[Rfam]
RNA sequence: UAAAAUGAUAGAGGUCGCAAUGAAUAGGAAGUUUUACUGAGCUGGACAAGCGUUGAAGUAAAACGGAGGAGACAUUGCCGAAAUGAAUUCACUCGUCCAAGUGAGUUUGUUGGGGCAGCAAGGGAUACUUGCUGAACUGUCGCAGUUUUGCGGAGUGCUAUUCGUUAC
Numbered sequence: 001u002a003a004a005a006u007g008a009u010a011g012a013g014g015u016c017g018c019a020a021u022g023a024a025u026a027g028g029a030a031g032u033u034u035u036a037c038u039g040a041g042c043u044g045g046a047c048a049a050g051c052g053u054u055g056a057a058g059u060a061a062a063a064c065g066g067a068g069g070a071g072a073c074a075u076u077g078c079c080g081a082a083a084u085g086a087a088u089u090c091a092c093u094c095g096u097c098c099a100a101g102u103g104a105g106u107u108u109g110u111u112g113g114g115g116c117a118g119c120a121a122g123g124g125a126u127a128c129u130u131g132c133u134g135a136a137c138u139g140u141c142g143c144a145g146u147u148u149u150g151c152g153g154a155g156u157g158c159u160a161u162u163c164g165u166u167a168c
Stems, first nucleotide, its partner, number of pairs: 007162005017078006025070001031064008082111012112138002116134007140153005
RNA: Lysine riboswitch aptamer